[Rfam]
RNA: tRNA
RNA sequence: GCCGGCGUAGCUCAGUGGUAGAGCGACCGCCUUGUAAGCGGUAGGUCGUGGGUUCGAAUCCCACCGCCGGCU
Numbered sequence: 001g002c003c004g005g006c007g008u009a010g011c012u013c014a015g016u017g018g019u020a021g022a023g024c025g026a027c028c029g030c031c032u033u034g035u036a037a038g039c040g041g042u043a044g045g046u047c048g049u050g051g052g053u054u055c056g057a058a059u060c061c062c063a064c065c066g067c068c069g070g071c072u
Base pairs, nucleotide, nucleotide: 001071002070003069004068005067006066007065010024011023012022013021026042027041028040029039030038048064049063050062051061052060